[Rfam]
RNA sequence: UGGCGCCCAACGGUGUGGCUUUGGAUACGGGGGAAUUCGCGAGGGAAGUGGCAGGUAAGUGUUUGGCCGAAGAAGAAGAAGAAGAAAAAAAAAGUGAAAGUCAGUUCCACAAAGUUCGCCGCAGGAGCCUGCCGUGCCGUUCUUAAAGGUACAGUAGCACCUAAGUAUGGGACAAGAAUUAAGUAAGCAUAAAGUUUUUGUUAAGCAAUUAAAAGAAGCUUUAAAGACAUGGAGAGUAAAGGUUAAGAGUAAUGAUCUUUUUAAGUUUUUUGACCUUAUUAAGGACACCUGUCCAU
Dot-bracket structure: .....(((....(((..........)))..)))....(...........................)..................................(...((..........(..(((.(.......).)))..).....)).)......(.(..((((....)))).).)....(((((.................................)).)))......((((((((..((((((.......))))))......))))))))........(.((((....)))).)

Overview: Mason-Pfizer monkey virus packaging signal: a 296-nucleotide sequence from Sciurus vulgaris. Rfam's curators write: This family represents a group of sequences that are related to the Mason-Pfizer monkey virus (MPMV) packaging signal. Lineage of the source: Eukaryota > Euteleostomi > Dipnotetrapodomorpha > Sciurini > Sciurus. It scores 162 bits against the family's covariance model. The family's consensus secondary structure was predicted with PFOLD.